[Rfam]
RNA sequence: UCAUGAGGUAGAGGAGCAAAGCGAAAGAGUACACUGUCAGAGUGCUGGGGCACUAAGACGGCGGUGGAAAGGUCAAUUUGCCGAAGAAGGAUAAUAACUCCAGUGUUUAUCUUUCUGGGGUAUUGCCGAACAGGCAAUACACUGUCACUGCAACUGUAGUGGAGCACUAUCCGGAUG
Numbered sequence: 001u002c003a004u005g006a007g008g009u010a011g012a013g014g015a016g017c018a019a020a021g022c023g024a025a026a027g028a029g030u031a032c033a034c035u036g037u038c039a040g041a042g043u044g045c046u047g048g049g050g051c052a053c054u055a056a057g058a059c060g061g062c063g064g065u066g067g068a069a070a071g072g073u074c075a076a077u078u079u080g081c082c083g084a085a086g087a088a089g090g091a092u093a094a095u096a097a098c099u100c101c102a103g104u105g106u107u108u109a110u111c112u113u114u115c116u117g118g119g120g121u122a123u124u125g126c127c128g129a130a131c132a133g134g135c136a137a138u139a140c141a142c143u144g145u146c147a148c149u150g151c152a153a154c155u156g157u158a159g160u161g162g163a164g165c166a167c168u169a170u171c172c173g174g175a176u177g
Stems, first nucleotide, its partner, number of pairs: 007171005016081005023074002032066007085116010117143002120140008145162007
Overview: This 177-nucleotide RNA sequence from Alteribacter keqinensis belongs to the Rfam family "Lysine riboswitch aptamer". Riboswitches are metabolite binding domains within certain messenger RNAs that serve as precision sensors for their corresponding targets.